The record is a 179-nucleotide RNA from Alkalihalobacillus trypoxylicola, which matches "Lysine riboswitch aptamer" in Rfam. The match comes from Rfam's covariance-model search (120 bits).
RNA sequence: AAAUGGGGUAGAGGUGCAGGAAGAAAAAGUAUGCAAAAGGAGCUAGUGGGUAGCCAUGAAUUUUGCAGAAAGGUCAACUUGCCGAAGGAUAUGAGUGUACCACUGCUCCUAUUUCUGGGUCGUUAUUGAAUAAAUAACGGACUGUCACUGAUAAAAUUCAGUGGAGAGCUAUUCAAAAA
Numbered sequence: 001a002a003a004u005g006g007g008g009u010a011g012a013g014g015u016g017c018a019g020g021a022a023g024a025a026a027a028a029g030u031a032u033g034c035a036a037a038a039g040g041a042g043c044u045a046g047u048g049g050g051u052a053g054c055c056a057u058g059a060a061u062u063u064u065g066c067a068g069a070a071a072g073g074u075c076a077a078c079u080u081g082c083c084g085a086a087g088g089a090u091a092u093g094a095g096u097g098u099a100c101c102a103c104u105g106c107u108c109c110u111a112u113u114u115c116u117g118g119g120u121c122g123u124u125a126u127u128g129a130a131u132a133a134a135u136a137a138c139g140g141a142c143u144g145u146c147a148c149u150g151a152u153a154a155a156a157u158u159c160a161g162u163g164g165a166g167a168g169c170u171a172u173u174c175a176a177a178a179a
Stems, first nucleotide, its partner, number of pairs: 006174006016082005023075002032067007086116003089112003093108004117143002120140008145164007

Notes: Riboswitches are metabolite binding domains within certain messenger RNAs that serve as precision sensors for their corresponding targets. Allosteric rearrangement of mRNA structure is mediated by ligand binding, and this results in modulation of gene expression.